The family of this 113-nucleotide sequence from Digitaria exilis is "mir-399 microRNA precursor family". The family's consensus secondary structure was predicted with PFOLD. For this family Rfam cites "Computational Identification of Plant MicroRNAs and Their Targets, Including a Stress-Induced miRNA" (Jones-Rhoades and Bartel, Mol Cell, 2004). Rfam links the family to the GO terms RISC complex and miRNA-mediated post-transcriptional gene silencing. Rfam's curators write: mir-399 was identified in both Arabidopsis thaliana and Oryza sativa computationally and was later experimentally verified. mir-399 is thought to target mRNAs coding for a phosphatase transporter.
RNA sequence: GUGAGAAUCACAGUGCGGUUCUCCUCUGGCAUGGAGGCCAAUUUAGCUGGCAUUGGACAAUGCACGGUGCUAUCGCCAUCCCUGCCAAAGGAGAAUUGCCCUGCCAUUCAGUA
Number, nucleotide and partner (000 for none) at each position: 001g000002u000003g000004a000005g109006a108007a107008u106009c000010a000011c103012a102013g101014u000015g099016c098017g097018g096019u095020u000021c093022u092023c091024c090025u000026c000027u087028g086029g085030c084031a083032u000033g081034g080035a079036g000037g000038c000039c000040a000041a000042u000043u000044u000045a000046g000047c000048u000049g000050g000051c000052a000053u000054u000055g000056g000057a000058c000059a000060a000061u000062g000063c000064a000065c000066g000067g000068u000069g000070c000071u000072a000073u000074c000075g000076c000077c000078a000079u035080c034081c033082c000083u031084g030085c029086c028087a027088a000089a000090g024091g023092a022093g021094a000095a019096u018097u017098g016099c015100c000101c013102u012103g011104c000105c000106a008107u007108u006109c005110a000111g000112u000113a000